Shown here is a 65-nucleotide RNA sequence from Cocos nucifera, a member of the family "Small nucleolar RNA SNORD25". The family is grouped with related families in Rfam's "SNORD25 clan". A search with the family's covariance model found it, with a score of 44 bits. The family's consensus secondary structure was predicted with PFOLD. Gene Ontology terms of the family: nucleolus and RNA processing. By type it is a C/D-box small nucleolar RNA. The family has 12 seed sequences and 985 matches in Rfam 15.1. Taxonomically the source falls in Cocos (Eukaryota, Streptophytina, Mesangiospermae, Arecoideae).

[Rfam]
RNA sequence: GACAACGGUAAUGAGCUUGCAGACCUGUAAUUAUUAUUGCCGUUAUGAUCGCAUAAUUAGUUGCU
Numbered sequence: 001g002a003c004a005a006c007g008g009u010a011a012u013g014a015g016c017u018u019g020c021a022g023a024c025c026u027g028u029a030a031u032u033a034u035u036a037u038u039g040c041c042g043u044u045a046u047g048a049u050c051g052c053a054u055a056a057u058u059a060g061u062u063g064c065u
Base pairs, nucleotide, nucleotide: 003063004062005061006060